[Rfam]
RNA: Bacteroidales small SRP
Organism: Hoylesella oralis
RNA sequence: UGUAUAUGGGUAAGUCUCAUACGGUCAGCUCCCAUCGAAUCCUCCAGGACGGGAACGUAGCAAAGGUAGUUGGUUGUAGCGGCGCGAUAUGAAUAGCUUACCCGCCU
Numbered sequence: 001u002g003u004a005u006a007u008g009g010g011u012a013a014g015u016c017u018c019a020u021a022c023g024g025u026c027a028g029c030u031c032c033c034a035u036c037g038a039a040u041c042c043u044c045c046a047g048g049a050c051g052g053g054a055a056c057g058u059a060g061c062a063a064a065g066g067u068a069g070u071u072g073g074u075u076g077u078a079g080c081g082g083c084g085c086g087a088u089a090u091g092a093a094u095a096g097c098u099u100a101c102c103c104g105c106c107u
Base pairs, nucleotide, nucleotide: 008103009102010101011100012099013098014097015096017092018091019090020089021088022086023085024083025082